The record is a 123-nucleotide RNA sequence from Lactobacillus acetotolerans, which matches "Ribosomal protein L10 leader" in Rfam.
Pairs were carried over by alignment from the consensus structure, which was predicted with CMfinder.
By type it is a cis-regulatory leader.
This family is a putative r-protein leader autoregulatory structure found in B. subtilis and other low-GC Gram-positive bacteria. It is located in the 5' untranslated regions of mRNAs encoding ribosomal proteins L10 and L12 (rplJ-rplL).
Rfam links the family to the GO term regulation of gene expression.
[Rfam]
Nucleotides: 123
Base pairs, nucleotide, nucleotide: 028054029053030052031051033043034042035041086107087106088105089104090103091102092101093100094099
Number, partner (000 for none) and nucleotide at each position: 001000u002000a003000g004000u005000u006000a007000a008000a009000g010000u011000a012000a013000a014000u015000u016000c017000u018000a019000c020000c021000u022000a023000a024000g025000a026000c027000u028054c029053g030052g031051g032000u033043g034042g035041u036000a037000u038000a039000a040000c041035a042034c043033c044000u045000c046000a047000a048000a049000a050000u051031c052030c053029c054028g055000c056000c057000g058000a059000g060000g061000c062000c063000a064000g065000a066000a067000g068000a069000u070000a071000a072000u073000g074000a075000a076000g077000a078000u079000u080000u081000u082000a083000u084000a085000a086107c087106u088105c089104c090103a091102u092101g093100u094099c095000u096000u097000a098000u099094g100093g101092c102091a103090u104089g105088g106087a107086g108000c109000u110000u111000u112000u113000u114000u115000a116000u117000u118000a119000g120000g121000c122000c123000u